[Rfam]
RNA sequence: CUUUUCCCAGAUUUAAUCCCGUCUCUGUCACGAAAGUGAGGUAGGACAAAAUACAUUCUCGUUGGUUGAGGAUGACCGGUAAAGCAGAACCUGGGCGGUUUGAAGGGA
Number, nucleotide and partner (000 for none) at each position: 001c000002u000003u000004u000005u000006c095007c094008c093009a092010g091011a000012u000013u000014u000015a000016a000017u000018c000019c000020c000021g090022u089023c000024u088025c087026u086027g085028u039029c038030a037031c036032g000033a000034a000035a000036g031037u030038g029039a028040g000041g000042u000043a000044g000045g000046a000047c000048a000049a000050a000051a000052u105053a000054c000055a073056u072057u071058c070059u069060c068061g067062u000063u000064g000065g000066u000067u061068g060069a059070g058071g057072a056073u055074g100075a099076c098077c097078g096079g000080u000081a000082a000083a000084g000085c027086a026087g025088a024089a022090c021091c010092u009093g008094g007095g006096c078097g077098g076099u075100u074101u000102g000103a000104a000105g052106g000107g000108a000